[Rfam]
RNA sequence: GAUCGCAAUGAUGACAUUUAAAAUUCAAGCUCAACAGACCGGAUUGCAAUCUUUCUUUCCGAAAGCUUGUAUGUCGAUCACCGCUGAACUGAGCGAUC
Numbered sequence: 001g002a003u004c005g006c007a008a009u010g011a012u013g014a015c016a017u018u019u020a021a022a023a024u025u026c027a028a029g030c031u032c033a034a035c036a037g038a039c040c041g042g043a044u045u046g047c048a049a050u051c052u053u054u055c056u057u058u059c060c061g062a063a064a065g066c067u068u069g070u071a072u073g074u075c076g077a078u079c080a081c082c083g084c085u086g087a088a089c090u091g092a093g094c095g096a097u098c
Stems, first nucleotide, its partner, number of pairs: 001098006
Dot-bracket structure: ((((((......................................................................................))))))